[Rfam]
RNA sequence: GAUUUAUAAAGAAGUGUGGAGAGAUUAGGCUCGCUGAAACACUGGCAACCUCCUCAACUCAGAGAAAGGUGCUAAAUCCUACCCAACCUUAGUAGUUGGGAAAUAUAAAUU
Numbered sequence: 001g002a003u004u005u006a007u008a009a010a011g012a013a014g015u016g017u018g019g020a021g022a023g024a025u026u027a028g029g030c031u032c033g034c035u036g037a038a039a040c041a042c043u044g045g046c047a048a049c050c051u052c053c054u055c056a057a058c059u060c061a062g063a064g065a066a067a068g069g070u071g072c073u074a075a076a077u078c079c080u081a082c083c084c085a086a087c088c089u090u091a092g093u094a095g096u097u098g099g100g101a102a103a104u105a106u107a108a109a110u111u
Base pairs, nucleotide, nucleotide: 001111002110003109004108005107006106007105008104013043014042015041016040017039021032022031023030026081027080028079029078044073045072046071047070049069050068051065052064054062077103082100083099084098085097086096087095
Shown here is a 111-nucleotide RNA from marine bacterium AO1-C, a member of the family "SAM riboswitch aptamer (S box leader)". The base pairs follow the family's consensus structure, which is taken from published work. Lineage of the source: Bacteria > Pseudomonadati > Bacteroidota > Cytophagia > Cytophagaceae.